[Rfam]
RNA sequence: AUCGUUCAUUCAGUGCCCUAUUUUAGUGCAUUGAACGGAAGUAGGAAAACCUGAAAACCUCUAUCUGAAAAGAUAGGUAAGCAAGUACCCGCUAGGGGAACGAGACCGAAAGUUUUACCGAAGGAACGCGUU
Numbered sequence: 001a002u003c004g005u006u007c008a009u010u011c012a013g014u015g016c017c018c019u020a021u022u023u024u025a026g027u028g029c030a031u032u033g034a035a036c037g038g039a040a041g042u043a044g045g046a047a048a049a050c051c052u053g054a055a056a057a058c059c060u061c062u063a064u065c066u067g068a069a070a071a072g073a074u075a076g077g078u079a080a081g082c083a084a085g086u087a088c089c090c091g092c093u094a095g096g097g098g099a100a101c102g103a104g105a106c107c108g109a110a111a112g113u114u115u116u117a118c119c120g121a122a123g124g125a126a127c128g129c130g131u132u
Stems, first nucleotide, its partner, number of pairs: 003128005009035008038129001044119002
Shown here is a 132-nucleotide RNA, a member of the family "Glutamine riboswitch aptamer (glnA leader)".